[Rfam]
RNA sequence: AAUUUCUUGUCGGAGUGCCCAGUGCGUAAGCCGGGCUGAGACCGUUAAUUCGGGAUCCGCGGAACCUGAUCAGGCUAAUACCUGCGAAGGGAACAAGAGUCAAUCUGCU
Numbered sequence: 001a002a003u004u005u006c007u008u009g010u011c012g013g014a015g016u017g018c019c020c021a022g023u024g025c026g027u028a029a030g031c032c033g034g035g036c037u038g039a040g041a042c043c044g045u046u047a048a049u050u051c052g053g054g055a056u057c058c059g060c061g062g063a064a065c066c067u068g069a070u071c072a073g074g075c076u077a078a079u080a081c082c083u084g085c086g087a088a089g090g091g092a093a094c095a096a097g098a099g100u101c102a103a104u105c106u107g108c109u
Stems, first nucleotide, its partner, number of pairs: 006097005011059004016053001017036004043052002065090003071084004
This 109-nucleotide sequence from Enterobacter sp. 638 belongs to the Rfam family "TPP riboswitch aptamer (THI element)".